Rfam assigns this 78-nucleotide RNA sequence from a Paenibacillaceae bacterium to the family "ZMP/ZTP riboswitch aptamer (pfl RNA motif)".
Pairs were carried over by alignment from the consensus structure, which is taken from published work.
It scores 60 bits against the family's covariance model.
RNA sequence: GAGCUUAUAUGUAACUGGCGAAUCAUGGGGAACCAUGGGGGAGCAUAUAAGUAAAAGCCGUACGCCUGGGCAGAGGUA
Numbered sequence: 001g002a003g004c005u006u007a008u009a010u011g012u013a014a015c016u017g018g019c020g021a022a023u024c025a026u027g028g029g030g031a032a033c034c035a036u037g038g039g040g041g042a043g044c045a046u047a048u049a050a051g052u053a054a055a056a057g058c059c060g061u062a063c064g065c066c067u068g069g070g071c072a073g074a075g076g077u078a
Stems, first nucleotide, its partner, number of pairs: 003052010015040002017066004025036004057071003